[Rfam]
RNA: SAH (S-adenosyl-L-homocysteine) riboswitch aptamer
RNA sequence: CUCGUCGAGGGGCGCUGCGACCGUUAGGGCGGACUGAUCCGCCAUCCCGCACCACAUGUGCGGAGACACACGGCCAGGCUCGACCAGCAUUCACCGUUCAACGGCGCCCGGAACUG
Numbered sequence: 001c002u003c004g005u006c007g008a009g010g011g012g013c014g015c016u017g018c019g020a021c022c023g024u025u026a027g028g029g030c031g032g033a034c035u036g037a038u039c040c041g042c043c044a045u046c047c048c049g050c051a052c053c054a055c056a057u058g059u060g061c062g063g064a065g066a067c068a069c070a071c072g073g074c075c076a077g078g079c080u081c082g083a084c085c086a087g088c089a090u091u092c093a094c095c096g097u098u099c100a101a102c103g104g105c106g107c108c109c110g111g112a113a114c115u116g
Stems, first nucleotide, its partner, number of pairs: 002086001004084005021073004